[Rfam]
RNA sequence: GCUCAGAGUAGAAGCGUUCAGCCCGCGUCACGCGAGCAGGAAAUUGCUCUUGAG
Numbered sequence: 001g002c003u004c005a006g007a008g009u010a011g012a013a014g015c016g017u018u019c020a021g022c023c024c025g026c027g028u029c030a031c032g033c034g035a036g037c038a039g040g041a042a043a044u045u046g047c048u049c050u051u052g053a054g
Stems, first nucleotide, its partner, number of pairs: 005050006015039001018041002021037002024034004

This 54-nucleotide RNA from Hydrogenophaga sp. PBC belongs to the Rfam family "Xanthine riboswitch aptamer (NMT1 RNA)". The base pairs follow the family's consensus structure, which is taken from published work. The literature on the family includes a 2020 paper in RNA by Yu and Breaker, "A bacterial riboswitch class senses xanthine and uric acid to regulate genes associated with purine oxidation".